[Rfam]
RNA: Rhizobiales sRNA Atu_C9
Organism: Shinella fusca
RNA sequence: CGUAAACGCAAGGAGGUAAGCCAUGGGACUCACACAUUCCUUGAAUGUUCUGAUGAUCAGUGCAGCGUUCCUCUUCAUCGCAACGAUGAUCUUCAUCUGAGGCGAUCAAGCGAAAAGAAAGGUCAGGGAGAAGCACAAACCCUGCCGAAACCCAUUCAGGAAUGCAUGGCCCCGGAAACGGCGCCAUGCAUUUU
Numbered sequence: 001c002g003u004a005a006a007c008g009c010a011a012g013g014a015g016g017u018a019a020g021c022c023a024u025g026g027g028a029c030u031c032a033c034a035c036a037u038u039c040c041u042u043g044a045a046u047g048u049u050c051u052g053a054u055g056a057u058c059a060g061u062g063c064a065g066c067g068u069u070c071c072u073c074u075u076c077a078u079c080g081c082a083a084c085g086a087u088g089a090u091c092u093u094c095a096u097c098u099g100a101g102g103c104g105a106u107c108a109a110g111c112g113a114a115a116a117g118a119a120a121g122g123u124c125a126g127g128g129a130g131a132a133g134c135a136c137a138a139a140c141c142c143u144g145c146c147g148a149a150a151c152c153c154a155u156u157c158a159g160g161a162a163u164g165c166a167u168g169g170c171c172c173c174g175g176a177a178a179c180g181g182c183g184c185c186a187u188g189c190a191u192u193u194u
Base pairs, nucleotide, nucleotide: 015049016048017047018046025041026040027039028038159194160193161192162191163190164189165188166187167186168185169184170183